[Rfam]
RNA sequence: CAUUCUGAGUCAAAGUACAGCCCGUAUGGACUUGAAAUCGGGAGAAUGCAGAAGGAGCCAGUGACCAGUCUUCGGACAAAUAUUCAGACUGACAGGAUCAGGUGGAUGACGCUUCUUGCAUGGGCGGCUAAUCACAGUACGCUGCUUUCAUAGCUGAUCCUUAUGUGUGUAGAAACUGUGCCGACAAAAAGCACAUGCGGUCUGAGAGUUUUGUGGCAAGGGGGA
Numbered sequence: 001c002a003u004u005c006u007g008a009g010u011c012a013a014a015g016u017a018c019a020g021c022c023c024g025u026a027u028g029g030a031c032u033u034g035a036a037a038u039c040g041g042g043a044g045a046a047u048g049c050a051g052a053a054g055g056a057g058c059c060a061g062u063g064a065c066c067a068g069u070c071u072u073c074g075g076a077c078a079a080a081u082a083u084u085c086a087g088a089c090u091g092a093c094a095g096g097a098u099c100a101g102g103u104g105g106a107u108g109a110c111g112c113u114u115c116u117u118g119c120a121u122g123g124g125c126g127g128c129u130a131a132u133c134a135c136a137g138u139a140c141g142c143u144g145c146u147u148u149c150a151u152a153g154c155u156g157a158u159c160c161u162u163a164u165g166u167g168u169g170u171a172g173a174a175a176c177u178g179u180g181c182c183g184a185c186a187a188a189a190a191g192c193a194c195a196u197g198c199g200g201u202c203u204g205a206g207a208g209u210u211u212u213g214u215g216g217c218a219a220g221g222g223g224g225a
Stems, first nucleotide, its partner, number of pairs: 004045003019032002068077003084205008093197001094161008103152001111119002122147007165196005
Rfam assigns this 225-nucleotide RNA sequence to the family "RT-2 RNA".
Rfam classes the family as a small RNA.